[Rfam]
Shown here is a 52-nucleotide RNA sequence, a member of the family "serC leader". Gene Ontology term of the family: regulation of gene expression. The literature on the family includes a 2005 paper in Genome Biol by Corbino et al., "Evidence for a second class of S-adenosylmethionine riboswitches and other regulatory RNA motifs in alpha-proteobacteria". Pairs were carried over by alignment from the consensus structure.

RNA sequence: CCGUGGGACAUCCUUCCCCAACGAAGGGCGCAUAUCUGAGAGGAUAGCAUUG
Numbered sequence: 001c002c003g004u005g006g007g008a009c010a011u012c013c014u015u016c017c018c019c020a021a022c023g024a025a026g027g028g029c030g031c032a033u034a035u036c037u038g039a040g041a042g043g044a045u046a047g048c049a050u051u052g
Base pairs, nucleotide, nucleotide: 011028012027013026014025015024016023033046034045035044036043037042